RNA sequence: GAUGAAGUGAUUCAUUGACUGAAGGAAGCCAAACGGUCCGCUAGCUAGCGGAUUUUGACGAACAGAAACUACAUACGGAGGCUCAAUAACCGUGGUUGAGCAAGCACACCAUUGCAAAGGCCGUGCUGUUAGUGGUGUUGGGUAGAUGUAGCAGAAAUAGGGAGAAAGAUAAGUGC
Numbered sequence: 001g002a003u004g005a006a007g008u009g010a011u012u013c014a015u016u017g018a019c020u021g022a023a024g025g026a027a028g029c030c031a032a033a034c035g036g037u038c039c040g041c042u043a044g045c046u047a048g049c050g051g052a053u054u055u056u057g058a059c060g061a062a063c064a065g066a067a068a069c070u071a072c073a074u075a076c077g078g079a080g081g082c083u084c085a086a087u088a089a090c091c092g093u094g095g096u097u098g099a100g101c102a103a104g105c106a107c108a109c110c111a112u113u114g115c116a117a118a119g120g121c122c123g124u125g126c127u128g129u130u131a132g133u134g135g136u137g138u139u140g141g142g143u144a145g146a147u148g149u150a151g152c153a154g155a156a157a158u159a160g161g162g163a164g165a166a167a168g169a170u171a172a173g174u175g176c
Base pairs, nucleotide, nucleotide: 001016002015003014004013005012006011041168046162049161052158053156054155055154056153057152069151070150071149072148073147074146081143082142083141085139086138087137089136090135091134092133094122095121096120097119100115101114102113103112